[Rfam]
RNA sequence: GAAGUCCCAAUCGGGUAAAGGUUAACCACCAGCCCGUACCGAGUGUUGCGCGACUCGCGGAGCCUUGUUGGCGAACAACAGUCGUGAAGCGUACACAGGGAACAUUGCAGGCCGCAAGGGAGACGUACCUCCUUUAAGUGAUUCAGCCUCGUUAGUUAUAUAAAAGCAGUUGGCGACGAUCUUAACAAUUCGGAAGCCAGUACAAAGGAAUCGCCAUGGUGAGAUUUCCGAGGGACUGCCGGGGUCCAAGAGCG
Dot-bracket structure: ...........((((....((([.[[.)))..))))..((..(((((((((((((...(................)...)))))))...)).)))).))...........................................(..((((((..............(((((((((..(((..........)))...)))....(...((((((......]].]))))))....)))))))))))))..)......

Rfam assigns this 254-nucleotide RNA from Desulforhopalus singaporensis to the family "Group II catalytic intron D1-D4-6". The source organism's lineage runs through Bacteria, Pseudomonadati, Thermodesulfobacteriota, Desulfocapsaceae and Desulforhopalus. The base pairs follow the family's consensus structure. It scores 123 bits against the family's covariance model.